[Rfam]
RNA: MIR6274 microRNA precursor family
Organism: Prunus armeniaca
RNA sequence: GGAUAUAACUGUUUUGUUAUUUCCGGCUAAUAAGACAAUGACACAUGCAAAAGUUAUUUCAUGUGUCAUUGUGUUAUUAGUUGGGGAUAACAAAAAGUGUUAUUUUC
Numbered sequence: 001g002g003a004u005a006u007a008a009c010u011g012u013u014u015u016g017u018u019a020u021u022u023c024c025g026g027c028u029a030a031u032a033a034g035a036c037a038a039u040g041a042c043a044c045a046u047g048c049a050a051a052a053g054u055u056a057u058u059u060c061a062u063g064u065g066u067c068a069u070u071g072u073g074u075u076a077u078u079a080g081u082u083g084g085g086g087a088u089a090a091c092a093a094a095a096a097g098u099g100u101u102a103u104u105u106u107c
Stems, first nucleotide, its partner, number of pairs: 002106002005103001012095009022085012035072013049058002